RNA: mir-16 microRNA precursor family
Organism: Mauremys mutica
RNA sequence: UGCAGGCAGCAGCGCAAAAGUAAGGGUGGCAUGGCAUAGUAUUGCCACCCUUACUUCUGCGCUGCUGCUGGCG
Numbered sequence: 001u002g003c004a005g006g007c008a009g010c011a012g013c014g015c016a017a018a019a020g021u022a023a024g025g026g027u028g029g030c031a032u033g034g035c036a037u038a039g040u041a042u043u044g045c046c047a048c049c050c051u052u053a054c055u056u057c058u059g060c061g062c063u064g065c066u067g068c069u070g071g072c073g
Stems, first nucleotide, its partner, number of pairs: 001073003005069011017056001019055008